[Rfam]
Overview:
The record is an 83-nucleotide RNA from Oncorhynchus kisutch, which matches "mir-15 microRNA precursor family" in Rfam. It scores 59 bits against the family's covariance model. The base pairs follow the family's consensus structure, which was predicted with RNAalifold. Its family is annotated with RISC complex and miRNA-mediated post-transcriptional gene silencing in the Gene Ontology. Rfam describes the family as follows. This family represents the related mir-15a and mir-15b sequences. In humans miR-15a and miR-16 are clustered within 0.5 kb at 13q14. This region has been shown to be deleted in more than half of B cell chronic lymphocytic leukaemias (CLL). Both miR-15a and miR-16 are deleted or down-regulated in more than two thirds of CLL cases. A reference for the family is Lagos-Quintana et al. (2001), "Identification of novel genes coding for small expressed RNAs", Science.

RNA sequence: CCUUGCAGUGCUGAAGCAGCACAGAAUGGUUUGUGGUUAAUACAGGGAUACAGGCUGUACUGUGCUGUUGCAGUAAUGCCUGG
Numbered sequence: 001c002c003u004u005g006c007a008g009u010g011c012u013g014a015a016g017c018a019g020c021a022c023a024g025a026a027u028g029g030u031u032u033g034u035g036g037u038u039a040a041u042a043c044a045g046g047g048a049u050a051c052a053g054g055c056u057g058u059a060c061u062g063u064g065c066u067g068u069u070g071c072a073g074u075a076a077u078g079c080c081u082g083g
Base pairs, nucleotide, nucleotide: 001083002082005079006078013071015069016068017067018066019065020064021063022062023061024060026058027057028056029055030054031053032052033051034050035049